[Rfam]
RNA sequence: AGUUUUAAUUUUCCUCGGCAGUUAACUGCAGCCGGUUUCAUAAUUCGGCAGUUAACUGCCGAAGGGCAU
Numbered sequence: 001a002g003u004u005u006u007a008a009u010u011u012u013c014c015u016c017g018g019c020a021g022u023u024a025a026c027u028g029c030a031g032c033c034g035g036u037u038u039c040a041u042a043a044u045u046c047g048g049c050a051g052u053u054a055a056c057u058g059c060c061g062a063a064g065g066g067c068a069u
Stems, first nucleotide, its partner, number of pairs: 012065002015062015
MIR2629 microRNA precursor family: a 69-nucleotide sequence from Medicago truncatula. Gene Ontology terms of the family: RISC complex and miRNA-mediated post-transcriptional gene silencing. The match comes from Rfam's covariance-model search (81 bits). Pairs were carried over by alignment from the consensus structure, which was predicted with RNAalifold.